This 71-nucleotide RNA belongs to the Rfam family "2dG-II purine riboswitch aptamer". On this family, see Kim et al., Proc Natl Acad Sci U S A 2007: "Guanine riboswitch variants from Mesoplasma florum selectively recognize 2'-deoxyguanosine". Gene Ontology term of the family: purine nucleobase biosynthetic process.
RNA sequence: GCAACCUGUAAUCCUUGAGAUCCGGUCAAGGAGCCUCCACCCCCGGGCCUAAUCCGGGGUCACCAGGGGAA
Numbered sequence: 001g002c003a004a005c006c007u008g009u010a011a012u013c014c015u016u017g018a019g020a021u022c023c024g025g026u027c028a029a030g031g032a033g034c035c036u037c038c039a040c041c042c043c044c045g046g047g048c049c050u051a052a053u054c055c056g057g058g059g060u061c062a063c064c065a066g067g068g069g070a071a
Base pairs, nucleotide, nucleotide: 005067006066007065008064012032013031014030015029016028017027018026042058043057044056045055046054047053